[Rfam]
RNA sequence: GCAACCUGAAACUGGCGCACGAAAAUCGCACGGUGUUUCUGAGCCUGCUGGGUAUUUCCUGGCUGUGGUUCGUCGGCGCGACCUUUCUGUCGUCGUUUUUCCGUUUCGCGAAAGACGUGCUG
Numbered sequence: 001g002c003a004a005c006c007u008g009a010a011a012c013u014g015g016c017g018c019a020c021g022a023a024a025a026u027c028g029c030a031c032g033g034u035g036u037u038u039c040u041g042a043g044c045c046u047g048c049u050g051g052g053u054a055u056u057u058c059c060u061g062g063c064u065g066u067g068g069u070u071c072g073u074c075g076g077c078g079c080g081a082c083c084u085u086u087c088u089g090u091c092g093u094c095g096u097u098u099u100u101c102c103g104u105u106u107c108g109c110g111a112a113a114g115a116c117g118u119g120c121u122g
Stems, first nucleotide, its partner, number of pairs: 010049001012047001014045002018041002021038003025034002051121005057115002060112001067099002071095002074092005080087002